[Rfam]
RNA sequence: AGUGGGUGAUGAAAUGCCAUUGGUCCGUGUUUCUGAACUAUGUGAUUUUUCCAUGGCUAUUCUGAUACU
Numbered sequence: 001a002g003u004g005g006g007u008g009a010u011g012a013a014a015u016g017c018c019a020u021u022g023g024u025c026c027g028u029g030u031u032u033c034u035g036a037a038c039u040a041u042g043u044g045a046u047u048u049u050u051c052c053a054u055g056g057c058u059a060u061u062c063u064g065a066u067a068c069u
Stems, first nucleotide, its partner, number of pairs: 001069004

A member of the RNA family "Small nucleolar RNA SNORD18" from Microtus ochrogaster, 69 nucleotides long. It scores 44 bits against the family's covariance model. Its family is annotated with RNA processing and nucleolus in the Gene Ontology. For this family Rfam cites "Two different snoRNAs are encoded in introns of amphibian and human L1 ribosomal protein genes" (Prislei et al., Nucleic Acids Res, 1993). It is annotated as a C/D-box small nucleolar RNA. The organism belongs to Microtus, within Eukaryota.